[Rfam]
The family of this 78-nucleotide RNA is "Small nucleolar RNA R12". The match comes from Rfam's covariance-model search (81 bits). snoR12 is a C/D box small nucleolar RNA, which acts as a methylation guide for 25S ribosomal RNA in plants. snoR12 has been alternatively named snoZ44 in Arabidopsis and snoZ131 in rice. The literature on the family includes a 2003 paper in Nucleic Acids Res by Chen et al., "The high diversity of snoRNAs in plants: identification and comparative study of 120 snoRNA genes from Oryza sativa". The family has 9 seed sequences and 992 matches in Rfam 15.1. The family's RNA type in Rfam is C/D-box small nucleolar RNA.
RNA sequence: AUAGGGGUGAUGAAAAAAAUCGAUCGGAUUCCCAAUGAUUUAAACCAUGAUAAUUACAACCAGCUACUUCUGACCUAU
Numbered sequence: 001a002u003a004g005g006g007g008u009g010a011u012g013a014a015a016a017a018a019a020u021c022g023a024u025c026g027g028a029u030u031c032c033c034a035a036u037g038a039u040u041u042a043a044a045c046c047a048u049g050a051u052a053a054u055u056a057c058a059a060c061c062a063g064c065u066a067c068u069u070c071u072g073a074c075c076u077a078u
Stems, first nucleotide, its partner, number of pairs: 001078005